Notes: STnc490 Hfq binding RNA: a 114-nucleotide sequence from Lawsonibacter hominis. NCBI's taxonomy places the organism under Bacteria, Bacillota, Eubacteriales, Oscillospiraceae, Lawsonibacter. It is annotated as a small RNA.

RNA sequence: AACCCCCGGCUGUGCCGGGGAGUUCCGUAAAAGCUUUAGCGGAGAGUAGGCAAUAAAAACUCCCUUUGCUAUACUUGAUGUGCGGUCUGGUAACUGCACAAAAGGAAGCAAAGG
Numbered sequence: 001a002a003c004c005c006c007c008g009g010c011u012g013u014g015c016c017g018g019g020g021a022g023u024u025c026c027g028u029a030a031a032a033g034c035u036u037u038a039g040c041g042g043a044g045a046g047u048a049g050g051c052a053a054u055a056a057a058a059a060c061u062c063c064c065u066u067u068g069c070u071a072u073a074c075u076u077g078a079u080g081u082g083c084g085g086u087c088u089g090g091u092a093a094c095u096g097c098a099c100a101a102a103a104g105g106a107a108g109c110a111a112a113g114g
Base pairs, nucleotide, nucleotide: 001024002023003022004020005019006018007017008016009015010014033040034039063114064113065112066111067110068109069108070107074104075103076102079100080099081098082097083096084095085094086093